[Rfam]
The family of this 136-nucleotide RNA from Monodelphis domestica is "Small nucleolar RNA SNORA42/SNORA80 family". For this family Rfam cites "A computational screen for mammalian pseudouridylation guide H/ACA RNAs" (Schattner et al., RNA, 2006). The match comes from Rfam's covariance-model search (90 bits). The family's consensus secondary structure was predicted with RNAalifold.

RNA sequence: GCAUGGUUUUGGAUUUAUGAAUGUCCUUUUUCCGUGGACUUUUCAUAGUGAAUUCCAUGCCAGAAAAAUCGACCACCCUGAACCAUUGCCAGACCUUUAUUUAUAAGUCUUGAGCACUGACAUGGGUGGUACAGUG
Numbered sequence: 001g002c003a004u005g006g007u008u009u010u011g012g013a014u015u016u017a018u019g020a021a022u023g024u025c026c027u028u029u030u031u032c033c034g035u036g037g038a039c040u041u042u043u044c045a046u047a048g049u050g051a052a053u054u055c056c057a058u059g060c061c062a063g064a065a066a067a068a069u070c071g072a073c074c075a076c077c078c079u080g081a082a083c084c085a086u087u088g089c090c091a092g093a094c095c096u097u098u099a100u101u102u103a104u105a106a107g108u109c110u111u112g113a114g115c116a117c118u119g120a121c122a123u124g125g126g127u128g129g130u131a132c133a134g135u136g
Base pairs, nucleotide, nucleotide: 001060002059003058004057005055006054008052015048016047017046018045019044020043023040025037026036073129074128075127076126077125078124084119085118089114091110092109093108094107096105

The family has 21 seed sequences and 1,535 matches in Rfam 15.1. Rfam classes the family as an H/ACA-box small nucleolar RNA. Rfam describes the family as follows. The members of this family belong to the H/ACA class of snoRNAs that guide the sites of modification of uridines to pseudouridines.